[Rfam]
The record is a 419-nucleotide sequence from Acidothermus cellulolyticus, which matches "Bacterial RNase P class A" in Rfam. The family's RNA type in Rfam is ribozyme. The source organism's lineage runs through Bacteria, Bacillati, Actinomycetes, Acidothermaceae and Acidothermus cellulolyticus.

RNA sequence: CGAGCCGGCCGGGCGGCCGCGUCGGGCCACGGUGCGCCGUGGACCCGCCGAGGAAGGUCCGGGCUCCACAGGGCAGGGUGGUGGGUAACACCCACCCGGGGCGACCCGCGGGAUAGUGCCACAGAAAACAGACCGCCGCGCAGCCGGCGCCUGCCGCUGCGCGGUAAGGGUGAAACGGCGGUGUAAGAGACCACCAGCGCCCGGGGUGACCCGGGCGGCUCGGCAAACCCCACCCGGAGCAAGGUCAAGAGGCGGCGGACGCCGAUGGGCGGCCGCCGCUGCGCAGGCGCUCGAGGACGGCCCGUCCGAUGCCUGCGGGUGGACCGCUGGAGGUUGCCGGCAACGGCAGCCCAAGAGAGAUGGCCGCCCGUCGCGGAUGACCGCGACGACAGAACCCGGCCUACAGGCCGACUCGCCCG
Number, nucleotide and partner (000 for none) at each position: 001c415002g414003a413004g412005c000006c410007g409008g408009c407010c406011g404012g368013g367014c366015g365016g364017c363018c362019g000020c050021g049022u000023c047024g046025g045026g044027c000028c042029a000030c000031g000032g000033u000034g000035c000036g000037c000038c000039g000040u000041g000042g028043a000044c026045c025046c024047g023048c000049c021050g020051a000052g000053g000054a000055a402056g401057g400058u000059c399060c398061g397062g396063g395064c239065u238066c237067c236068a000069c000070a000071g303072g302073g301074c300075a000076g235077g234078g233079u232080g231081g095082u094083g093084g092085g091086u000087a000088a000089c000090a000091c085092c084093c083094a082095c081096c110097c108098g107099g106100g105101g000102c000103g000104a000105c100106c099107c098108g097109c000110g096111g230112g229113a000114u000115a000116g228117u227118g224119c223120c222121a000122c000123a000124g000125a000126a000127a000128a000129c000130a000131g000132a000133c169134c168135g165136c164137c163138g162139c161140g160141c159142a158143g157144c000145c000146g000147g000148c000149g000150c000151c000152u000153g000154c000155c000156g000157c143158u142159g141160c140161g139162c138163g137164g136165u135166a000167a000168g134169g133170g000171u000172g000173a000174a000175a000176c000177g195178g194179c000180g192181g191182u190183g000184u000185a000186a000187g000188a000189g000190a182191c181192c180193a000194c178195c177196a000197g219198c217199g216200c215201c214202c213203g212204g211205g210206g000207u000208g000209a000210c205211c204212c203213g202214g201215g200216c199217g198218g000219c197220u000221c000222g120223g119224c118225a000226a000227a117228c116229c112230c111231c080232a079233c078234c077235c076236g067237g066238a065239g064240c000241a000242a000243g325244g324245u323246c322247a000248a000249g000250a000251g000252g000253c000254g000255g000256c000257g000258g000259a000260c000261g000262c000263c000264g000265a000266u000267g000268g000269g000270c000271g000272g000273c000274c000275g000276c000277c000278g000279c000280u000281g000282c000283g316284c315285a314286g313287g312288c311289g000290c000291u000292c000293g000294a000295g307296g306297a305298c304299g000300g074301c073302c072303c071304g298305u297306c296307c295308g000309a000310u000311g288312c287313c286314u285315g284316c283317g000318g000319g000320u000321g000322g246323a245324c244325c243326g000327c000328u000329g000330g000331a000332g351333g350334u349335u348336g347337c346338c345339g344340g000341c000342a000343a000344c339345g338346g337347c336348a335349g334350c333351c332352c000353a000354a000355g000356a000357g000358a000359g000360a000361u000362g018363g017364c016365c015366g014367c013368c012369c000370g000371u000372c000373g000374c000375g000376g000377a000378u000379g000380a000381c000382c000383g000384c000385g000386a000387c000388g000389a000390c000391a000392g000393a000394a000395c063396c062397c061398g060399g059400c057401c056402u055403a000404c011405a000406g010407g009408c008409c007410g006411a000412c004413u003414c002415g001416c000417c000418c000419g000